[Rfam]
A member of the RNA family "Mammalian CPEB3 ribozyme" from Alligator mississippiensis, 75 nucleotides long. Lineage of the source: Eukaryota > Deuterostomia > Chordata > Alligatoridae > Alligator.

RNA sequence: AAAGAGUACAGUAAAGCCAUAGCAGAAGCGCUAACAGUGCAGCCUUGAGAUUCCAAUGAAUCUGCAAAUUCUGCU
Numbered sequence: 001a002a003a004g005a006g007u008a009c010a011g012u013a014a015a016g017c018c019a020u021a022g023c024a025g026a027a028g029c030g031c032u033a034a035c036a037g038u039g040c041a042g043c044c045u046u047g048a049g050a051u052u053c054c055a056a057u058g059a060a061u062c063u064g065c066a067a068a069u070u071c072u073g074c075u
Base pairs, nucleotide, nucleotide: 013046014045016043017042021075022074023073024072025071026070027069028040029039030038048063049062050061051060052059053058